Shown here is a 111-nucleotide RNA from Burkholderia glumae, a member of the family "Burkholderia sRNA 1". Gene Ontology term of the family: bacterial biofilm matrix. Identified by RNA-seq, RACE and Northern blot. Strongly expressed in biofilm. The sequence is in the family's curated seed alignment. The literature on the family includes a 2017 paper in Sci Rep by Sass et al., "Identification of small RNAs abundant in Burkholderia cenocepacia biofilms reveal putative regulators with a potential role in carbon and iron metabolism". The source organism's lineage runs through Bacteria, Pseudomonadota, Burkholderiales, Burkholderiaceae and Burkholderia glumae.
RNA sequence: AGUUCUGAUGCACCGCGAAACAAAUUUUGCAGGUGGAGAACGAGGAGACAAUCGAGGCACAAAGUGCCCGGCCCCAAAGCGCUGUUGGACGGAAUCCAACAGCGCUUUUUC
Numbered sequence: 001a002g003u004u005c006u007g008a009u010g011c012a013c014c015g016c017g018a019a020a021c022a023a024a025u026u027u028u029g030c031a032g033g034u035g036g037a038g039a040a041c042g043a044g045g046a047g048a049c050a051a052u053c054g055a056g057g058c059a060c061a062a063a064g065u066g067c068c069c070g071g072c073c074c075c076a077a078a079g080c081g082c083u084g085u086u087g088g089a090c091g092g093a094a095u096c097c098a099a100c101a102g103c104g105c106u107u108u109u110u111c
Stems, first nucleotide, its partner, number of pairs: 002041004009037001011035004015030005044075002047073001052071003056068005076108014
Dot-bracket structure: .((((...(.(((((((((......))))).)))).)))))..((.(....(((.(((((...)))))))).)))((((((((((((((.....))))))))))))))...